[Rfam]
RNA sequence: CCCACCGAUGAAUCGGUGGGCUAUUAUCAACCGUCCCUGACGGGACG
Numbered sequence: 001c002c003c004a005c006c007g008a009u010g011a012a013u014c015g016g017u018g019g020g021c022u023a024u025u026a027u028c029a030a031c032c033g034u035c036c037c038u039g040a041c042g043g044g045a046c047g
Stems, first nucleotide, its partner, number of pairs: 001020008033046005
This 47-nucleotide sequence from Caldithrix abyssi belongs to the Rfam family "Acido-Lenti-1 RNA". A search with the family's covariance model found it, with a score of 41 bits. By type it is a small RNA.